Overview: This 84-nucleotide RNA sequence from Atopobium minutum belongs to the Rfam family "aspS RNA". The family's RNA type in Rfam is cis-regulatory element. It scores 54 bits against the family's covariance model.

RNA sequence: GCGCAACUCACGCUGUCUACGCCGGUUGCGUCGUCUGAAGGUAUAGGUCACCCGGACCGACACGGGGUGAUCCAGACGAAAGGA
Numbered sequence: 001g002c003g004c005a006a007c008u009c010a011c012g013c014u015g016u017c018u019a020c021g022c023c024g025g026u027u028g029c030g031u032c033g034u035c036u037g038a039a040g041g042u043a044u045a046g047g048u049c050a051c052c053c054g055g056a057c058c059g060a061c062a063c064g065g066g067g068u069g070a071u072c073c074a075g076a077c078g079a080a081a082g083g084a
Base pairs, nucleotide, nucleotide: 001031002030003029004028005027006026007025008024011021012020033077034076035075036074037073047071048070049069050068051067052066053065